Shown here is a 248-nucleotide part of an RNA from Methylobacterium radiodurans, a member of the family "Bacterial large subunit ribosomal RNA".

RNA sequence: GGAGACUUGAGAGGCUUUGUCCCUAGUACGAGAGGACCGGGAUGAACGUACCUCUGGUGGAGCUGUUGUCGCGCCAGCGGCAGUGCAGCAUAGCUAUGUACGGACGGGAUAACCGCUGAAGGCAUCUAAGCGGGAAACCCCCCUCGAAACGAGGUCUCCCUUGAGGGCCGUGGAAGACGACCACGUCGAUAGGCCGGAGGUGCAAGCGCGGUAACGCGCUGAGCUGACCGGUACUAAUCGCCCGAUAG
Number, nucleotide and partner (000 for none) at each position: 001g159002g158003a157004g156005a155006c154007u153008u152009g000010a000011g145012a144013g143014g142015c000016u000017u045018u044019g043020u042021c041022c040023c039024u000025a000026g000027u000028a000029c000030g000031a000032g000033a000034g000035g000036a000037c000038c000039g023040g022041g021042a020043u019044g018045a017046a000047c102048g101049u100050a099051c098052c000053u000054c000055u096056g095057g094058u000059g000060g000061a000062g089063c088064u087065g086066u085067u082068g081069u080070c079071g078072c077073g000074c000075c000076a000077g072078c071079g070080g069081c068082a067083g000084u000085g066086c065087a064088g063089c062090a000091u000092a000093g000094c057095u056096a055097u000098g051099u050100a049101c048102g047103g000104a000105c000106g140107g139108g138109a000110u000111a000112a000113c133114c132115g131116c130117u129118g000119a000120a000121g000122g000123c000124a000125u000126c000127u000128a000129a117130g116131c115132g114133g113134g000135a000136a000137a000138c108139c107140c106141c000142c014143c013144u012145c011146g000147a000148a000149a000150c000151g000152a008153g007154g006155u005156c004157u003158c002159c001160c000161u000162u245163g000164a000165g243166g242167g241168c240169c185170g184171u183172g182173g181174a000175a000176g000177a000178c000179g000180a000181c173182c172183a171184c170185g169186u000187c000188g000189a000190u236191a235192g234193g232194c231195c230196g229197g228198a000199g225200g224201u000202g000203c000204a000205a000206g219207c218208g217209c216210g215211g000212u000213a000214a000215c210216g209217c208218g207219c206220u000221g000222a000223g000224c200225u199226g000227a000228c197229c196230g195231g194232u193233a000234c192235u191236a190237a000238u000239c000240g168241c167242c166243c165244g000245a162246u000247a000248g000